[Rfam]
RNA sequence: UGUCUCAAAGAUUAAGCCAUGCAUGUCUCAGUGCAAGCCACAUUAAGGUGAAACCGCGAAAGGCUCAUUAAAUCAGUUGUGGUUCCUUAGAUCGUACGUGGUUACUUGGAUAACUGUGGUAAUUCUAGAGCUAAUACAUGCCUAUAGAGUUCAGACCGUCGUUCCGCUCUCGGGCGGCGCGUGCGGUAGGGACGCUUUUAUUAGAUCAAAACCGGCCCGUCGCGGCGCGCCUCGCGCGCGUCUCGAUCGUGGCCCGCGCAAAGACCUGGUGACUCUGAAUAACUUUUAGCUGAUCGCACGGUCUCCGUACCGGCGACGCAUCUUUCAAAUGUCUGCCUUAUCAACUGUCGACGGUAGAUUCAAUGCCUACCGUGGUGGUAACGGGUAACGGGGAAUCAGGGUUCGAUUCCGGAGAGGGAGCCUGAGAAACGGCUACCACAUCCAAGGAAGGCAGCAGGCGCGCAAAUUACCCACUCCCGGAACGGGGAGGUAGUGACGAAAAAUAACGAUACGGGACUCAUCCGAGGCCCCGUAAUCGGAAUGAGAACACUUUAAAACCUUUAAACGAGGAUCAA
Numbered sequence: 001u002g003u004c005u006c007a008a009a010g011a012u013u014a015a016g017c018c019a020u021g022c023a024u025g026u027c028u029c030a031g032u033g034c035a036a037g038c039c040a041c042a043u044u045a046a047g048g049u050g051a052a053a054c055c056g057c058g059a060a061a062g063g064c065u066c067a068u069u070a071a072a073u074c075a076g077u078u079g080u081g082g083u084u085c086c087u088u089a090g091a092u093c094g095u096a097c098g099u100g101g102u103u104a105c106u107u108g109g110a111u112a113a114c115u116g117u118g119g120u121a122a123u124u125c126u127a128g129a130g131c132u133a134a135u136a137c138a139u140g141c142c143u144a145u146a147g148a149g150u151u152c153a154g155a156c157c158g159u160c161g162u163u164c165c166g167c168u169c170u171c172g173g174g175c176g177g178c179g180c181g182u183g184c185g186g187u188a189g190g191g192a193c194g195c196u197u198u199u200a201u202u203a204g205a206u207c208a209a210a211a212c213c214g215g216c217c218c219g220u221c222g223c224g225g226c227g228c229g230c231c232u233c234g235c236g237c238g239c240g241u242c243u244c245g246a247u248c249g250u251g252g253c254c255c256g257c258g259c260a261a262a263g264a265c266c267u268g269g270u271g272a273c274u275c276u277g278a279a280u281a282a283c284u285u286u287u288a289g290c291u292g293a294u295c296g297c298a299c300g301g302u303c304u305c306c307g308u309a310c311c312g313g314c315g316a317c318g319c320a321u322c323u324u325u326c327a328a329a330u331g332u333c334u335g336c337c338u339u340a341u342c343a344a345c346u347g348u349c350g351a352c353g354g355u356a357g358a359u360u361c362a363a364u365g366c367c368u369a370c371c372g373u374g375g376u377g378g379u380a381a382c383g384g385g386u387a388a389c390g391g392g393g394a395a396u397c398a399g400g401g402u403u404c405g406a407u408u409c410c411g412g413a414g415a416g417g418g419a420g421c422c423u424g425a426g427a428a429a430c431g432g433c434u435a436c437c438a439c440a441u442c443c444a445a446g447g448a449a450g451g452c453a454g455c456a457g458g459c460g461c462g463c464a465a466a467u468u469a470c471c472c473a474c475u476c477c478c479g480g481a482a483c484g485g486g487g488a489g490g491u492a493g494u495g496a497c498g499a500a501a502a503a504u505a506a507c508g509a510u511a512c513g514g515g516a517c518u519c520a521u522c523c524g525a526g527g528c529c530c531c532g533u534a535a536u537c538g539g540a541a542u543g544a545g546a547a548c549a550c551u552u553u554a555a556a557a558c559c560u561u562u563a564a565a566c567g568a569g570g571a572u573c574a575a
Stems, first nucleotide, its partner, number of pairs: 003501001005499002009494001010461001016459003020456003025057002031054002037049002064414003074335003079330002083328002089323004105140001107138002114130002117127003149193004156186004198282005211270004252259002294316004299312004337385003344376003351373007389411004393404004416437002419434003439450001441448002467492001469491003475487005507538003510534006517526003545566001547562001549561001

Eukaryotic small subunit ribosomal RNA: a 575-nucleotide part of an RNA from Cinara cedri. NCBI's taxonomy places the organism under Eukaryota, Opisthokonta, Pancrustacea, Aphididae, Cinara.